[Rfam]
RNA sequence: UGCACGCAUGACUGUAAGUCGCUUUGACUAAAAGCAUCUGCUAAAUCACAUGUU
Dot-bracket structure: ............((((....(((((.....)))))...))).)...........

Source information
A member of the RNA family "UnaL2 LINE 3' element" from Coregonus sp. 'balchen', 54 nucleotides long. A search with the family's covariance model found it, with a score of 56 bits. Rfam links the family to the GO term transposition, RNA-mediated. The eel long interspersed element (LINE) UnaL2 and its partner short interspersed element (SINE) share a conserved 3' tail containing a stem-loop that is critical for their retrotransposition. Taxonomically the source falls in Coregonus (Eukaryota, Actinopterygii, Actinopteri, Neopterygii). By type it is a cis-regulatory element.